[Rfam]
A member of the RNA family "SAM riboswitch aptamer (S box leader)" from Clostridium pasteurianum, 110 nucleotides long.
The SAM riboswitch is found upstream of a number of genes which code for proteins involved in methionine or cysteine biosynthesis in Gram-positive bacteria.
The match comes from Rfam's covariance-model search (90 bits).
Taxonomically the source falls in Clostridium pasteurianum (Bacteria, Bacillati, Eubacteriales, Clostridiaceae).

RNA sequence: CUCUUAUCAAGAGUGGUGGAGGGAUCGGCCCUUUGAAGCCCGACAACCGGCAUUAUUUAAAUGUAUCGGUGUCAAUUCCUACAGAAUAUAAUUAUUCUGGAAGAUGAGAA
Numbered sequence: 001c002u003c004u005u006a007u008c009a010a011g012a013g014u015g016g017u018g019g020a021g022g023g024a025u026c027g028g029c030c031c032u033u034u035g036a037a038g039c040c041c042g043a044c045a046a047c048c049g050g051c052a053u054u055a056u057u058u059a060a061a062u063g064u065a066u067c068g069g070u071g072u073c074a075a076u077u078c079c080u081a082c083a084g085a086a087u088a089u090a091a092u093u094a095u096u097c098u099g100g101a102a103g104a105u106g107a108g109a110a
Stems, first nucleotide, its partner, number of pairs: 002109007013041001015040003021031003025081001027079002042073004047069002077102001082099006